[Rfam]
RNA sequence: AUUUUCGUUAGAUAUGUUUGAUAUUCUUGGUUGUUUUAUGAAUGAUCGACCAGGAAUCAAACAUAUUAUUACGACGAU
Numbered sequence: 001a002u003u004u005u006c007g008u009u010a011g012a013u014a015u016g017u018u019u020g021a022u023a024u025u026c027u028u029g030g031u032u033g034u035u036u037u038a039u040g041a042a043u044g045a046u047c048g049a050c051c052a053g054g055a056a057u058c059a060a061a062c063a064u065a066u067u068a069u070u071a072c073g074a075c076g077a078u
Stems, first nucleotide, its partner, number of pairs: 005074004011067012024054002029051005
A member of the RNA family "mir-190 microRNA precursor family" from Vespula pensylvanica, 78 nucleotides long.
Clan: mir-50 clan.
Rfam links the family to the GO terms miRNA-mediated post-transcriptional gene silencing and RISC complex.
Pairs were carried over by alignment from the consensus structure, which was predicted with RNAalifold.